[Rfam]
The family of this 62-nucleotide RNA from Candidatus Kuenenia stuttgartensis is "Fluoride riboswitch aptamer (crcB RNA motif)". Lineage of the source: Bacteria > Pseudomonadati > Candidatus Brocadiia > Candidatus Brocadiaceae > Candidatus Kuenenia. Gene Ontology terms of the family: positive regulation of gene expression and response to fluoride. The base pairs follow the family's consensus structure, which is taken from published work.

RNA sequence: GAAUAAAGAGGCGAUGGAGUUCGCCUGAUUGCUAUGUGAUAGCUGAUAACUCCUAUUGAAGU
Numbered sequence: 001g002a003a004u005a006a007a008g009a010g011g012c013g014a015u016g017g018a019g020u021u022c023g024c025c026u027g028a029u030u031g032c033u034a035u036g037u038g039a040u041a042g043c044u045g046a047u048a049a050c051u052c053c054u055a056u057u058g059a060a061g062u
Stems, first nucleotide, its partner, number of pairs: 010025004016053006031043004